Overview
U4atac minor spliceosomal RNA: a 126-nucleotide sequence from Otolemur garnettii. The family's consensus secondary structure is taken from published work. The literature on the family includes a 2002 paper in Nucleic Acids Res by Shukla et al., "Domains of human U4atac snRNA required for U12-dependent splicing in vivo". Gene Ontology terms of the family: U4atac snRNP, mRNA 5'-splice site recognition and spliceosomal tri-snRNP complex assembly. About the family: U4atac is an essential component of the minor U12-type spliceosome complex which is required for removal of the rarer class of eukaryotic introns (AT-AC, U12-type). NCBI's taxonomy places the organism under Eukaryota, Metazoa, Euteleostomi, Strepsirrhini, Otolemur.
RNA sequence: ACCAUCCUUUUCUGUGGUUUGCACUACUGUCCAAUGAACAGAUAGUUGGGACAGUACUACUAACACCUACACAACACGUUCACAUCAACUAGAGCUCCGCUUUAUAUUGGUGCAAUUUUGGGAAAA
Numbered sequence: 001a002c003c004a005u006c007c008u009u010u011u012c013u014g015u016g017g018u019u020u021g022c023a024c025u026a027c028u029g030u031c032c033a034a035u036g037a038a039c040a041g042a043u044a045g046u047u048g049g050g051a052c053a054g055u056a057c058u059a060c061u062a063a064c065a066c067c068u069a070c071a072c073a074a075c076a077c078g079u080u081c082a083c084a085u086c087a088a089c090u091a092g093a094g095c096u097c098c099g100c101u102u103u104a105u106a107u108u109g110g111u112g113c114a115a116u117u118u119u120g121g122g123a124a125a126a
Stems, first nucleotide, its partner, number of pairs: 007017002021060001023058001026055007038046002083112005090104006